[Rfam]
RNA sequence: AGUCCCCAGGACCUUGGCUUGUGACUGGUUACUGUGUGUGAAGUGGGUAACAGUCUACAGUCAUGGCUACUGGUGACUG
Numbered sequence: 001a002g003u004c005c006c007c008a009g010g011a012c013c014u015u016g017g018c019u020u021g022u023g024a025c026u027g028g029u030u031a032c033u034g035u036g037u038g039u040g041a042a043g044u045g046g047g048u049a050a051c052a053g054u055c056u057a058c059a060g061u062c063a064u065g066g067c068u069a070c071u072g073g074u075g076a077c078u079g
Base pairs, nucleotide, nucleotide: 012066013065015063016062017061018060023055024054025053026052027051029050030049031048032047033046